[Rfam]
RNA sequence: UGACCCGGCGCUUCCCGACGCCAAGAACCAAAGAACCGGGAAAAGAACCCACCCAUCCCUACCGCCCCCCGUCGAUCACCCGCAGGGGUGAACAUCGCCAACUCGGCUGGCGUGGAGGGGAUUCGAUGGUGCAGCGUCAGCCGCAACAACCCCACACAUGCAUCGGCCCUCGCCGGGACUGGCAUCCCAGUGCGAGGGCCUGAUCACCGAGGAAGUUAGGGCCUUCCCG
Numbered sequence: 001u002g003a004c005c006c007g008g009c010g011c012u013u014c015c016c017g018a019c020g021c022c023a024a025g026a027a028c029c030a031a032a033g034a035a036c037c038g039g040g041a042a043a044a045g046a047a048c049c050c051a052c053c054c055a056u057c058c059c060u061a062c063c064g065c066c067c068c069c070c071g072u073c074g075a076u077c078a079c080c081c082g083c084a085g086g087g088g089u090g091a092a093c094a095u096c097g098c099c100a101a102c103u104c105g106g107c108u109g110g111c112g113u114g115g116a117g118g119g120g121a122u123u124c125g126a127u128g129g130u131g132c133a134g135c136g137u138c139a140g141c142c143g144c145a146a147c148a149a150c151c152c153c154a155c156a157c158a159u160g161c162a163u164c165g166g167c168c169c170u171c172g173c174c175g176g177g178a179c180u181g182g183c184a185u186c187c188c189a190g191u192g193c194g195a196g197g198g199c200c201u202g203a204u205c206a207c208c209g210a211g212g213a214a215g216u217u218a219g220g221g222c223c224u225u226c227c228c229g
Stems, first nucleotide, its partner, number of pairs: 007208002010205001016071002076091006106141005165200005171194003175188004211227005
Source information: Streptomyces sRNA 4677: a 229-nucleotide RNA sequence from Streptomyces curacoi. The literature on the family includes a 2014 paper in PLoS One by Hindra et al., "Complex intra-operonic dynamics mediated by a small RNA in Streptomyces coelicolor". Rfam 15.1 lists 563 matches to the family in 285 species. Rfam's curators write: Located in the intergenic region between anti-sigma factor SCO4677 gene and a putative regulatory protein gene SCO4676. scr4677 expression requires the SCO4677 activity and scr4677 sRNA itself seem to affect the levels of the SCO4676-associated transcripts. The pairing is the family consensus, mapped onto this sequence.